[Rfam]
RNA: SraG RNA
Organism: Trabulsiella odontotermitis
RNA sequence: CCUCUUGCAUCCUCGCGACUAAUGACAAUCCUAACCCCUCUCGGGUCAAGCCUCUCAUUAGCCGCGCGAACCUCUGCAAUGAAGAUCAUUUAAAGCAACAAUACAUUAGUUUCCAGUGAAUUGCUGCCAUCGGCUUGAAAAAAGGGGCCAUGAAGGCCCCUCUUU
Numbered sequence: 001c002c003u004c005u006u007g008c009a010u011c012c013u014c015g016c017g018a019c020u021a022a023u024g025a026c027a028a029u030c031c032u033a034a035c036c037c038c039u040c041u042c043g044g045g046u047c048a049a050g051c052c053u054c055u056c057a058u059u060a061g062c063c064g065c066g067c068g069a070a071c072c073u074c075u076g077c078a079a080u081g082a083a084g085a086u087c088a089u090u091u092a093a094a095g096c097a098a099c100a101a102u103a104c105a106u107u108a109g110u111u112u113c114c115a116g117u118g119a120a121u122u123g124c125u126g127c128c129a130u131c132g133g134c135u136u137g138a139a140a141a142a143a144g145g146g147g148c149c150a151u152g153a154a155g156g157c158c159c160c161u162c163u164u165u
Stems, first nucleotide, its partner, number of pairs: 001084001003082002007077003014068004019061007090119002144160006